[Rfam]
Nucleotides: 099
Stems, first nucleotide, its partner, number of pairs: 006094008020043004045078003048074002052072003058066002
Number, partner (000 for none) and nucleotide at each position: 001000a002000u003000a004000g005000g006094c007093g008092a009091u010090g011089c012088g013087g014000g015000a016000g017000a018000g019000a020043u021042c022041g023040g024000u025000a026000c027000g028000g029000g030000c031000g032000u033000g034000c035000c036000c037000g038000g039000a040023c041022c042021g043020g044000c045078g046077c047076c048074g049073a050000c051000g052072g053071a054070g055000c056000a057000a058066c059065c060000g061000c062000c063000c064000c065059g066058g067000a068000a069000a070054c071053u072052c073049u074048c075000a076047g077046g078045c079000a080000c081000c082000a083000a084000g085000g086000a087013c088012c089011g090010c091009a092008u093007c094006g095000c096000u097000g098000g099000a
The record is a 99-nucleotide RNA sequence from Pseudolabrys taiwanensis, which matches "Glycine riboswitch aptamer" in Rfam. NCBI's taxonomy places the organism under Bacteria, Pseudomonadati, Pseudomonadota, Hyphomicrobiales, Pseudolabrys.